[Rfam]
RNA sequence: AGUAGCUAAAAAUAGUCAUUGGAUCAAAAGUUGGAUUGGUAAUCAGGCGGACAUUUUCUAUAUGAGUGUCAUAUAUUCCGCCAAAAAACAUGGCUUUUAGCACCAAUAAAAAUGCACCAAAACCCAGAAUAAUCAGGUGAUGUCCUAAGAUCAAACCUAGCUUUUUAGGAUCAUUCCA
Numbered sequence: 001a002g003u004a005g006c007u008a009a010a011a012a013u014a015g016u017c018a019u020u021g022g023a024u025c026a027a028a029a030g031u032u033g034g035a036u037u038g039g040u041a042a043u044c045a046g047g048c049g050g051a052c053a054u055u056u057u058c059u060a061u062a063u064g065a066g067u068g069u070c071a072u073a074u075a076u077u078c079c080g081c082c083a084a085a086a087a088a089c090a091u092g093g094c095u096u097u098u099a100g101c102a103c104c105a106a107u108a109a110a111a112a113u114g115c116a117c118c119a120a121a122a123c124c125c126a127g128a129a130u131a132a133u134c135a136g137g138u139g140a141u142g143u144c145c146u147a148a149g150a151u152c153a154a155a156c157c158u159a160g161c162u163u164u165u166u167a168g169g170a171u172c173a174u175u176c177c178a
Base pairs, nucleotide, nucleotide: 136175137174138173139172140171141170144169145168146167147166148165
The family of this 178-nucleotide RNA from Fischerella muscicola is "Antisense RNA which regulates isiA expression". The sequence is in the family's curated seed alignment. NCBI's taxonomy places the organism under Bacteria, Bacillati, Cyanobacteriota, Hapalosiphonaceae, Fischerella. The base pairs follow the family's consensus structure, which was predicted with PFOLD. The family has 308 seed sequences and 3,397 matches in Rfam 15.1.